[Rfam]
Lysine riboswitch aptamer: a 183-nucleotide RNA sequence from Ruminiclostridium sufflavum. The match comes from Rfam's covariance-model search (124 bits). About the family: Riboswitches are metabolite binding domains within certain messenger RNAs that serve as precision sensors for their corresponding targets.
RNA sequence: GACUUAGAUAGAGGUGCGUUUUUUAAGAGUAAAUACAAUGAAGUUUAUUGGGGUCUUGUGAUUUGUUUUGAAAGGAAAAAACGCCGAAGGUAUUACUCACCCAAUAAGUUUUGUAAUACCUGGUUACAAGGUUAACAGCUUUGUGACUGUCAUCAUUUUGCAUGAUGGAGCGCUAUCUGUUUA
Numbered sequence: 001g002a003c004u005u006a007g008a009u010a011g012a013g014g015u016g017c018g019u020u021u022u023u024u025a026a027g028a029g030u031a032a033a034u035a036c037a038a039u040g041a042a043g044u045u046u047a048u049u050g051g052g053g054u055c056u057u058g059u060g061a062u063u064u065g066u067u068u069u070g071a072a073a074g075g076a077a078a079a080a081a082c083g084c085c086g087a088a089g090g091u092a093u094u095a096c097u098c099a100c101c102c103a104a105u106a107a108g109u110u111u112u113g114u115a116a117u118a119c120c121u122g123g124u125u126a127c128a129a130g131g132u133u134a135a136c137a138g139c140u141u142u143g144u145g146a147c148u149g150u151c152a153u154c155a156u157u158u159u160g161c162a163u164g165a166u167g168g169a170g171c172g173c174u175a176u177c178u179g180u181u182u183a
Base pairs, nucleotide, nucleotide: 006178007177008176009175010174011173016084017083018082019081020080021079022078023077024076032069033068035066036065037064038063088121089120090119091118092117093116094115095114096113099110122148123147124146125145126144127143128142129141130140131139132138150168151167152166153165154164155163156162